[Rfam]
RNA sequence: AUUGGAUCAAUGAUGUACAUUAGAAACUGCGUUAUCUAUCUGAAAUUUCCUCAAUGGAAUUGUAGAAAGCCACGAUGUUCUGAGAUCCAAU
Numbered sequence: 001a002u003u004g005g006a007u008c009a010a011u012g013a014u015g016u017a018c019a020u021u022a023g024a025a026a027c028u029g030c031g032u033u034a035u036c037u038a039u040c041u042g043a044a045a046u047u048u049c050c051u052c053a054a055u056g057g058a059a060u061u062g063u064a065g066a067a068a069g070c071c072a073c074g075a076u077g078u079u080c081u082g083a084g085a086u087c088c089a090a091u
Stems, first nucleotide, its partner, number of pairs: 001091007
RNA: Small nucleolar RNA snoR27
Organism: Tripterygium wilfordii